[Rfam]
RNA sequence: AAAACGGUCUUUUUAAAGACCACAAAAUAAUUUUAUAAAAAAGAAA
Numbered sequence: 001a002a003a004a005c006g007g008u009c010u011u012u013u014u015a016a017a018g019a020c021c022a023c024a025a026a027a028u029a030a031u032u033u034u035a036u037a038a039a040a041a042a043g044a045a046a
Base pairs, nucleotide, nucleotide: 006021007020008019009018010017011016

This 46-nucleotide sequence from Polypedilum vanderplanki belongs to the Rfam family "Histone 3' UTR stem-loop". It is annotated as a cis-regulatory element. Taxonomically the source falls in Polypedilum (Eukaryota, Pterygota, Chironomidae, Polypedilum).